[Rfam]
RNA: Small nucleolar RNA snoR136
RNA sequence: UCUGCUUCUCUUUAAGUAUUCGUGUCUGUGAACUAACUUCAAUGGUUCCUGGGCAAUGAUGAGAUGGGAAGCAGAAAUCAAAUGUUCCUCUCGCUAUCCAAUGCGGAAUUUCCUGAUGCGAUUGGACGUCGAGGAACUACAUUU
Numbered sequence: 001u002c003u004g005c006u007u008c009u010c011u012u013u014a015a016g017u018a019u020u021c022g023u024g025u026c027u028g029u030g031a032a033c034u035a036a037c038u039u040c041a042a043u044g045g046u047u048c049c050u051g052g053g054c055a056a057u058g059a060u061g062a063g064a065u066g067g068g069a070a071g072c073a074g075a076a077a078u079c080a081a082a083u084g085u086u087c088c089u090c091u092c093g094c095u096a097u098c099c100a101a102u103g104c105g106g107a108a109u110u111u112c113c114u115g116a117u118g119c120g121a122u123u124g125g126a127c128g129u130c131g132a133g134g135a136a137c138u139a140c141a142u143u144u
Stems, first nucleotide, its partner, number of pairs: 001076001003073003008068003012064002017058002023055006032046003084137007092128002097126005105113003